[Rfam]
RNA sequence: AGGAAAAAAGGAUGGGGCUGGGGAGAUGAACCCCCCCAAGCCCUCCUUGGGCUAAUAGGCUCA
Dot-bracket structure: .............((((((.(((....[[.[[..))).)))))).............]].]].
This 63-nucleotide RNA from Diceros bicornis belongs to the Rfam family "Ma3 gene ribosomal frameshift signal". On this family, see Wills et al., J Biol Chem 2006: "A functional -1 ribosomal frameshift signal in the human paraneoplastic Ma3 gene". It is annotated as a frameshift element. The family's consensus secondary structure is taken from published work.